[Rfam]
RNA sequence: UAAAAGAUCACCUAGGGUUCCGCUCACCUCGUAUUCGAUGUGAGGACUGGACCGAGAGGUGACCAUACCCGACAGGGGUGUGACACGGAGGGACAAAAACCCGGGAGAU
Numbered sequence: 001u002a003a004a005a006g007a008u009c010a011c012c013u014a015g016g017g018u019u020c021c022g023c024u025c026a027c028c029u030c031g032u033a034u035u036c037g038a039u040g041u042g043a044g045g046a047c048u049g050g051a052c053c054g055a056g057a058g059g060u061g062a063c064c065a066u067a068c069c070c071g072a073c074a075g076g077g078g079u080g081u082g083a084c085a086c087g088g089a090g091g092g093a094c095a096a097a098a099a100c101c102c103g104g105g106a107g108a109u
Stems, first nucleotide, its partner, number of pairs: 008062005015053002020050002022047001023044005064082007084104001086107001090102003
The family of this 109-nucleotide RNA sequence from Sulfoacidibacillus thermotolerans is "Guanidine-I riboswitch aptamer". The base pairs follow the family's consensus structure. Lineage of the source: Bacteria > Bacillati > Caryophanales > Alicyclobacillaceae > Sulfoacidibacillus. This family represents a conserved RNA structure found upstream of the ykkC and yxkD genes in Bacillus subtilis and related genes in other bacteria.